[Rfam]
RNA sequence: CUCCCCGAAAUGCAUUUAGGUGCAGCCUUGGUUACGAGUCUUGCAGAGGUAGAGCUACUGAUUGGAUGCGAGGGCUUCACCGCCUAUCAACUCCAGACAAACUCCGAAUGCUGCAAGAUGCUUACCAGGAGUGAGGGCGCGGGUGCUAAGGUCCGUGUCCGAGAGGGAAAGAACCCGGACCAUCAGCUAAGGUCCCCAAGUGUAUGUUAAGUUGGUUUAACGAAGUCUGAUUGCAUAGACAGCUAGGAUGUUGGCUUGGAAGCAGCCAUUCAUUAAAAGAGUGCGUAACAGCUCACUAGUCGAGCGGUCGGGCGUGGAUAAUAAUCGGGCAUCAAACAUACCACCGAAGCUAUGGAUUGUAAAAUUAUUUACAGUGGUAGGGGAGCAUUCCGGUCAGCGCCGAAGGUGUACUGCGAGGUAUGCUGGAGCGUCCGGAAAAGCAAAU
Number, nucleotide and partner (000 for none) at each position: 001c385002u384003c383004c382005c381006c380007g000008a000009a000010a000011u024012g023013c022014a021015u020016u000017u000018a000019g000020g015021u014022g013023c012024a011025g000026c131027c129028u128029u127030g126031g125032u124033u000034a000035c000036g000037a122038g119039u118040c117041u116042u115043g114044c113045a112046g111047a000048g000049g000050u000051a000052g105053a103054g102055c000056u000057a000058c000059u099060g098061a000062u000063u095064g094065g093066a092067u000068g000069c000070g088071a087072g085073g084074g083075c082076u000077u000078c000079a000080c000081c000082g075083c074084c073085u072086a000087u071088c070089a000090a000091c000092u066093c065094c064095a063096g000097a000098c060099a059100a000101a000102c054103u053104c000105c052106g000107a000108a000109u000110g000111c046112u045113g044114c043115a042116a041117g040118a039119u038120g000121c000122u037123u000124a032125c031126c030127a029128g028129g027130a000131g026132u000133g000134a000135g160136g159137g158138c157139g156140c155141g154142g153143g152144u151145g000146c000147u000148a000149a000150g000151g144152u143153c142154c141155g140156u139157g138158u137159c136160c135161g000162a000163g000164a000165g176166g175167g174168a000169a000170a000171g000172a000173a000174c167175c166176c165177g000178g000179a000180c355181c354182a353183u352184c000185a351186g350187c349188u000189a000190a000191g345192g344193u343194c000195c000196c000197c000198a000199a000200g342201u000202g341203u340204a339205u338206g337207u336208u000209a000210a000211g000212u000213u000214g000215g000216u000217u000218u000219a000220a000221c316222g315223a000224a000225g313226u312227c311228u310229g309230a308231u307232u306233g305234c304235a000236u000237a000238g000239a000240c000241a000242g300243c299244u298245a297246g296247g000248a273249u272250g271251u000252u000253g267254g266255c265256u000257u000258g000259g000260a000261a000262g000263c000264a000265g255266c254267c253268a000269u000270u000271c250272a249273u248274u278275a000276a000277a000278a274279g294280a000281g000282u000283g292284c291285g000286u000287a000288a000289c000290a000291g284292c283293u000294c279295a000296c246297u245298a244299g243300u242301c000302g000303a000304g234305c233306g232307g231308u230309c229310g228311g227312g226313c225314g000315u222316g221317g000318a000319u000320a000321a000322u000323a000324a000325u000326c000327g000328g000329g000330c000331a000332u000333c000334a000335a000336a207337c206338a205339u204340a203341c202342c200343a193344c192345c191346g000347a000348a000349g187350c186351u185352a183353u182354g181355g180356a375357u374358u373359g372360u371361a370362a369363a368364a000365u000366u000367a000368u363369u362370u361371a360372c359373a358374g357375u356376g000377g000378u000379a000380g006381g005382g004383g003384a002385g001386c440387a000388u437389u436390c435391c434392g433393g432394u000395c000396a000397g429398c428399g000400c000401c000402g000403a000404a000405g424406g423407u422408g421409u420410a419411c418412u417413g000414c000415g000416a000417g412418g411419u410420a409421u408422g407423c406424u405425g000426g000427a000428g398429c397430g000431u000432c393433c392434g391435g390436a389437a388438a000439a000440g386441c000442a000443a000444a000445u000

Source information
Bacterial large subunit ribosomal RNA: a 445-nucleotide part of an RNA from Prolixibacter sp. SD074. A reference for the family is Cannone et al. (2002), "The comparative RNA web (CRW) site: an online database of comparative sequence and structure information for ribosomal, intron, and other RNAs", BMC Bioinformatics.